[Rfam]
RNA sequence: AGAGUAGGUGAGGUGGUUGCACUUUUUGUCACAAAAAUUGUCAAUGAGUGAGGAAAGUCCGGACUCCCGAAAGACCAAACUUGCUGGGUAACUCCCAGUGCAGGCGACUGUGAGGAUAGUGCCACAGAAAAAUACCGCCUUUUUCAGUGAACAGAAGUGCGACCCUGCUGAUGUCUCAUCAGCUAAGGAACGCGCACUUCCCGAAGGGUUAACAGUUAACAGUGAACAGUAAAUGAAAACUGAUAACUGAUGACUGAUAAUUGAUUGAGGUAAGGGUGCAAAGGUGCGGUAAGAGCGCACCAGCAGUAUCGAGAGGUGCUGGCUAGGUAAACCCCGGUUGGGAGCAAGGCCGAAGGGAUUAGGGUUGGUCUUUUUCCAAUCCCGCUAAAGGUGAGCCGCAAGAGGUGGUUGGUAACAGCCAUCCCAGAUAGAUAACCGCCCUUAGAAGAAUGUGUAGUACACUUAUACAUCCUCAUCUAAGAACAGAAUCCGGCUUAUGUGCCGACUCUCUCU
Numbered sequence: 001a002g003a004g005u006a007g008g009u010g011a012g013g014u015g016g017u018u019g020c021a022c023u024u025u026u027u028g029u030c031a032c033a034a035a036a037a038u039u040g041u042c043a044a045u046g047a048g049u050g051a052g053g054a055a056a057g058u059c060c061g062g063a064c065u066c067c068c069g070a071a072a073g074a075c076c077a078a079a080c081u082u083g084c085u086g087g088g089u090a091a092c093u094c095c096c097a098g099u100g101c102a103g104g105c106g107a108c109u110g111u112g113a114g115g116a117u118a119g120u121g122c123c124a125c126a127g128a129a130a131a132a133u134a135c136c137g138c139c140u141u142u143u144u145c146a147g148u149g150a151a152c153a154g155a156a157g158u159g160c161g162a163c164c165c166u167g168c169u170g171a172u173g174u175c176u177c178a179u180c181a182g183c184u185a186a187g188g189a190a191c192g193c194g195c196a197c198u199u200c201c202c203g204a205a206g207g208g209u210u211a212a213c214a215g216u217u218a219a220c221a222g223u224g225a226a227c228a229g230u231a232a233a234u235g236a237a238a239a240c241u242g243a244u245a246a247c248u249g250a251u252g253a254c255u256g257a258u259a260a261u262u263g264a265u266u267g268a269g270g271u272a273a274g275g276g277u278g279c280a281a282a283g284g285u286g287c288g289g290u291a292a293g294a295g296c297g298c299a300c301c302a303g304c305a306g307u308a309u310c311g312a313g314a315g316g317u318g319c320u321g322g323c324u325a326g327g328u329a330a331a332c333c334c335c336g337g338u339u340g341g342g343a344g345c346a347a348g349g350c351c352g353a354a355g356g357g358a359u360u361a362g363g364g365u366u367g368g369u370c371u372u373u374u375u376c377c378a379a380u381c382c383c384g385c386u387a388a389a390g391g392u393g394a395g396c397c398g399c400a401a402g403a404g405g406u407g408g409u410u411g412g413u414a415a416c417a418g419c420c421a422u423c424c425c426a427g428a429u430a431g432a433u434a435a436c437c438g439c440c441c442u443u444a445g446a447a448g449a450a451u452g453u454g455u456a457g458u459a460c461a462c463u464u465a466u467a468c469a470u471c472c473u474c475a476u477c478u479a480a481g482a483a484c485a486g487a488a489u490c491c492g493g494c495u496u497a498u499g500u501g502c503c504g505a506c507u508c509u510c511u512c513u
Stems, first nucleotide, its partner, number of pairs: 001509005007503004011498001012440007020050005026044003055496003059493005064344004073377001078339003082336002084098005099113001100111004114334002119332002121328003135275002137271005144264005283301006303323001304321007348397003359388004368382001371379002404423008

Overview: This 513-nucleotide RNA from Xenococcus sp. PCC 7305 belongs to the Rfam family "Bacterial RNase P class A". The family's RNA type in Rfam is ribozyme. The source organism's lineage runs through Bacteria, Bacillati, Cyanophyceae, Xenococcaceae and Xenococcus. From the family's description: Ribonuclease P (RNase P) is a ubiquitous endoribonuclease, found in archaea, bacteria and eukarya as well as chloroplasts and mitochondria. Its best characterised activity is the generation of mature 5'-ends of tRNAs by cleaving the 5'-leader elements of precursor-tRNAs.